[Rfam]
RNA: MicA sRNA
Organism: Salmonella enterica
RNA sequence: CGCCCUUGUUAGCCCCCUCCCUGUUUUCAGCGAUGAAAUUUUGGCCACUCCGUGAGUGGCCUUUU
Number, nucleotide and partner (000 for none) at each position: 001c000002g000003c000004c000005c000006u000007u000008g000009u000010u000011a000012g000013c000014c000015c000016c035017c000018u033019c032020c000021c030022u029023g028024u000025u000026u000027u000028c023029a022030g021031c000032g019033a018034u000035g016036a000037a000038a000039u000040u000041u000042u000043g061044g060045c059046c058047a057048c056049u055050c000051c000052g000053u000054g000055a049056g048057u047058g046059g045060c044061c043062u000063u000064u000065u000